This 59-nucleotide RNA belongs to the Rfam family "Antizyme RNA frameshifting stimulation element".
Gene Ontology term of the family: translational frameshifting.
By type it is a frameshift element.
Rfam's curators put it in the seed alignment.

[Rfam]
RNA sequence: UGAUGUCCCUCUCCCACCCCUGAAGAUCCCAGGUGGGCGAGGGAAUGAUCAGCGGGAUC
Numbered sequence: 001u002g003a004u005g006u007c008c009c010u011c012u013c014c015c016a017c018c019c020c021u022g023a024a025g026a027u028c029c030c031a032g033g034u035g036g037g038c039g040a041g042g043g044a045a046u047g048a049u050c051a052g053c054g055g056g057a058u059c
Stems, first nucleotide, its partner, number of pairs: 006044006013037006025059006
Dot-bracket structure: .....((((((.((((((......[[[[[[.)))))).)))))).........]]]]]]